[Rfam]
Nucleotides: 090
Base pairs, nucleotide, nucleotide: 004026005025006024007023008022009021028043029042030041031040032039055082056081057080058079059078060077061076062075
Number, partner (000 for none) and nucleotide at each position: 001000c002000c003000u004026c005025c006024c007023g008022c009021u010000u011000u012000u013000c014000c015000u016000c017000c018000c019000u020000g021009a022008g023007c024006g025005g026004g027000g028043c029042u030041u031040c032039g033000u034000u035000g036000a037000u038000u039032c040031g041030a042029a043028g044000c045000a046000u047000a048000u049000a050000u051000a052000u053000g054000g055082c056081c057080c058079c059078g060077a061076u062075c063000a064000g065000g066000u067000u068000u069000u070000a071000u072000u073000u074000a075062g076061g077060u078059c079058g080057g081056g082055g083000u084000u085000u086000c087000u088000u089000u090000u
This 90-nucleotide RNA from Deefgea piscis belongs to the Rfam family "Burkholderia RNA 7 (anti-hemB)". The literature on the family includes a 2007 paper in Nucleic Acids Res by Weinberg et al., "Identification of 22 candidate structured RNAs in bacteria using the CMfinder comparative genomics pipeline". Its family is annotated with protein binding and bacterial biofilm matrix in the Gene Ontology. Pairs were carried over by alignment from the consensus structure, which is taken from published work. Lineage of the source: Bacteria > Pseudomonadota > Betaproteobacteria > Chitinibacteraceae > Deefgea. This RNA motif was identified by computational search in b-proteobacteria Burkholderia. Co-purified with Hfq, expression confirmed by Northern blot.